[Rfam]
RNA sequence: UGUGUGCUGGGGGAUGAAAAGAAGGAGUGAUCCAUCGGCUAAGUGUCUUACCACUGUGCUGAAACUCAAACUGCUGACAGCGCACU
Numbered sequence: 001u002g003u004g005u006g007c008u009g010g011g012g013g014a015u016g017a018a019a020a021g022a023a024g025g026a027g028u029g030a031u032c033c034a035u036c037g038g039c040u041a042a043g044u045g046u047c048u049u050a051c052c053a054c055u056g057u058g059c060u061g062a063a064a065c066u067c068a069a070a071c072u073g074c075u076g077a078c079a080g081c082g083c084a085c086u
Base pairs, nucleotide, nucleotide: 002085003084004083005082006081007080008079009075010074012033013032014031015030017028035062036061037060038059039058043054044053045052

This 86-nucleotide RNA sequence from Peromyscus maniculatus belongs to the Rfam family "Small nucleolar RNA SNORD71". It is annotated as an H/ACA-box small nucleolar RNA. From the family's description: snoRNA HBII-239 belongs to the family of C/D snoRNAs.It is the human orthologue of the mouse MBII-239 described and is predicted to guide 2'O-ribose methylation of 5.8S rRNA on residue U14. It scores 100 bits against the family's covariance model. Rfam 15.1 lists 556 matches to the family in 528 species.